[Rfam]
RNA sequence: UCAAACUUCUUGCAAGGAGAUGUGGAAUGAUGGAGUAACGCCCUGAAACGCACCGCUAAUACUCCUUACAGCGGCUUAUUUGAUGUAGCAAAUGGCUGUGAAUAGCAAGGUGAAGAGUUGGGGACAGCAGACCGAAAGAUGGGAACACUUGAACUUUAGUAUCAAAAUUAACAAUGAUAUUGUAUGAAUUAAAGAAAAAGUGCCCAUACUCGAAAACGGCUCAGAGGUGAGUUGUGUCUGUGAUACCUAUGGCGUCUAUAAA
Number, nucleotide and partner (000 for none) at each position: 001u000002c000003a000004a000005a000006c000007u000008u000009c000010u000011u000012g000013c000014a000015a000016g000017g000018a000019g053020a000021u052022g051023u050024g049025g000026a000027a000028u000029g000030a000031u000032g044033g043034a000035g041036u000037a000038a000039c000040g000041c035042c000043c033044u032045g000046a000047a000048a000049c024050g023051c022052a021053c019054c254055g253056c252057u251058a000059a000060u000061a000062c000063u000064c110065c109066u108067u107068a000069c000070a000071g099072c098073g097074g096075c095076u094077u000078a000079u091080u090081u000082g000083a000084u000085g000086u000087a000088g000089c000090a080091a079092a000093u000094g076095g075096c074097u073098g072099u071100g000101a000102a000103u000104a000105g000106c000107a067108a066109g065110g064111u000112g000113a000114a000115g000116a000117g250118u249119u000120g247121g246122g000123g000124a000125c000126a000127g241128c240129a239130g238131a237132c236133c212134g211135a210136a000137a000138g000139a000140u208141g000142g000143g000144a000145a000146c000147a000148c000149u000150u000151g000152a000153a000154c000155u000156u000157u000158a000159g000160u000161a000162u000163c000164a000165a000166a000167a000168u000169u000170a000171a000172c000173a000174a000175u000176g000177a000178u000179a000180u000181u000182g000183u000184a000185u000186g000187a000188a000189u000190u000191a000192a000193a000194g000195a000196a000197a000198a000199a000200g000201u000202g000203c000204c000205c000206a000207u000208a140209c000210u135211c134212g133213a000214a000215a000216a235217c234218g233219g232220c231221u230222c229223a228224g000225a000226g000227g000228u223229g222230a221231g220232u219233u218234g217235u216236g132237u131238c130239u129240g128241u127242g000243a000244u000245a000246c121247c120248u000249a118250u117251g057252g056253c055254g054255u000256c000257u000258a000259u000260a000261a000262a000
RNA: Group II catalytic intron D1-D4-5
Organism: Clostridium sp. JN-9